[Rfam]
Nucleotides: 093
Stems, first nucleotide, its partner, number of pairs: 009085004014080001016078007030063003035059004
Number, partner (000 for none) and nucleotide at each position: 001000c002000g003000a004000c005000g006000u007000u008000g009085u010084a011083c012082g013000a014080c015000g016078c017077g018076c019075g020074c021073u022072a023000a024000g025000c026000a027000g028000g029000a030063a031062c032061c033000g034000g035059g036058a037057c038056u039000u040000g041000a042000u043000c044000c045000a046000u047000u048000u049000u050000g051000c052000a053000a054000a055000c056038a057037g058036u059035c060000a061032g062031g063030u064000a065000c066000c067000u068000g069000a070000a071000g072022u073021a074020g075019c076018g077017c078016g079000c080014g081000u082012u083011g084010u085009g086000c087000g088000g089000c090000u091000u092000c093000a